[Rfam]
RNA sequence: AAAAAGGGUGCUUACCGCUUCGAUGGUACGUGCGCUCUAAGGGCGCGCGGGGUACGGCUAUCAAGACAUACCCAGCACAUUAUUUUUGUAUCGGGAAGGCUGUUGGUUACCCCAAUGUGCCGGCGCCUCC
Numbered sequence: 001a002a003a004a005a006g007g008g009u010g011c012u013u014a015c016c017g018c019u020u021c022g023a024u025g026g027u028a029c030g031u032g033c034g035c036u037c038u039a040a041g042g043g044c045g046c047g048c049g050g051g052g053u054a055c056g057g058c059u060a061u062c063a064a065g066a067c068a069u070a071c072c073c074a075g076c077a078c079a080u081u082a083u084u085u086u087u088g089u090a091u092c093g094g095g096a097a098g099g100c101u102g103u104u105g106g107u108u109a110c111c112c113c114a115a116u117g118u119g120c121c122g123g124c125g126c127c128u129c130c
Stems, first nucleotide, its partner, number of pairs: 008078005013028005029049009050073005056067001097128004102124005108119003
Notes:
Rfam assigns this 130-nucleotide RNA from Brenthis ino to the family "U11 spliceosomal RNA". The family is grouped with related families in Rfam's "U1 clan". The match comes from Rfam's covariance-model search (83 bits).